[Rfam]
RNA sequence: CGCUCAUCCAGAGGGGCAGAGGGAUCGGCCCGAAGAAGCCCCGGCAACCUGUCACCAGUCAUCAGACUGGGUGAUCACGGUGCCAAUUCCGACCCGCGAAAGCGGGAAAGAUGAGGA
Number, nucleotide and partner (000 for none) at each position: 001c000002g000003c115004u114005c113006a112007u111008c110009c000010a000011g000012a000013g042014g041015g040016g039017c038018a000019g000020a000021g031022g030023g029024a000025u092026c091027g090028g089029c023030c022031c021032g000033a000034a000035g000036a000037a000038g017039c016040c015041c014042c013043g084044g083045c082046a081047a000048c080049c079050u000051g075052u074053c073054a072055c071056c070057a000058g000059u000060c000061a000062u000063c000064a000065g000066a000067c000068u000069g000070g056071g055072u054073g053074a052075u051076c000077a000078c000079g049080g048081u046082g045083c044084c043085a000086a000087u000088u109089c028090c027091g026092a025093c106094c105095c104096g103097c102098g000099a000100a000101a000102g097103c096104g095105g094106g093107a000108a000109a088110g008111a007112u006113g005114a004115g003116g000117a000
Shown here is a 117-nucleotide sequence from Actinosynnema mirum, a member of the family "SAM riboswitch aptamer (S box leader)". From the family's description: The SAM riboswitch is found upstream of a number of genes which code for proteins involved in methionine or cysteine biosynthesis in Gram-positive bacteria. The family has 457 seed sequences and 9,625 matches in Rfam 15.1.